[Rfam]
RNA sequence: GAUUAAAUAAUUUAUAUGUCUCGUAUAACGCCGGGAAUACGGCCCGGAAGUCUCUACCCGAAAACCGUAAAUUUUCGGACUACGAGGGAAUACGGCGGACCG
Numbered sequence: 001g002a003u004u005a006a007a008u009a010a011u012u013u014a015u016a017u018g019u020c021u022c023g024u025a026u027a028a029c030g031c032c033g034g035g036a037a038u039a040c041g042g043c044c045c046g047g048a049a050g051u052c053u054c055u056a057c058c059c060g061a062a063a064a065c066c067g068u069a070a071a072u073u074u075u076c077g078g079a080c081u082a083c084g085a086g087g088g089a090a091u092a093c094g095g096c097g098g099a100c101c102g
Stems, first nucleotide, its partner, number of pairs: 019087007031047005058078007
RNA: Purine riboswitch aptamer
Organism: Paenibacillus lemnae